RNA sequence: GGUUGUGAUGUAAACAUAAAGGGCCUUUCACAAGACCCCGAUUUGACAAUUUUUGGGAACCCUGAUCUGCCGGUCAGGGUA
Number, nucleotide and partner (000 for none) at each position: 001g000002g000003u000004u000005g000006u000007g000008a000009u000010g000011u000012a000013a000014a000015c000016a000017u000018a000019a000020a000021g038022g037023g036024c000025c034026u033027u032028u000029c000030a000031c000032a027033a026034g025035a000036c023037c022038c021039c000040g000041a000042u000043u000044u000045g000046a000047c000048a000049a000050u000051u000052u000053u000054u000055g000056g000057g000058a000059a080060c079061c078062c077063u076064g075065a074066u073067c072068u000069g000070c000071c000072g067073g066074u065075c064076a063077g062078g061079g060080u059081a000
RNA: SmY spliceosomal RNA
Organism: Caenorhabditis sp. 36 PRJEB53466